[Rfam]
RNA sequence: CCCCCGACUGCGGGAGAGAUCGCCGGCUCAUCGGGCCCGCGACGCCGAAGGAGCAACCGCCCCCGGAAACUCUCAGGCAAAAGGACCGCAGUCGGUAU
Numbered sequence: 001c002c003c004c005c006g007a008c009u010g011c012g013g014g015a016g017a018g019a020u021c022g023c024c025g026g027c028u029c030a031u032c033g034g035g036c037c038c039g040c041g042a043c044g045c046c047g048a049a050g051g052a053g054c055a056a057c058c059g060c061c062c063c064c065g066g067a068a069a070c071u072c073u074c075a076g077g078c079a080a081a082a083g084g085a086c087c088g089c090a091g092u093c094g095g096u097a098u
Stems, first nucleotide, its partner, number of pairs: 006093008020042004044078003047074002051072003057065001

A member of the RNA family "Glycine riboswitch aptamer" from Devosia enhydra, 98 nucleotides long. The pairing is the family consensus, mapped onto this sequence. It scores 70 bits against the family's covariance model.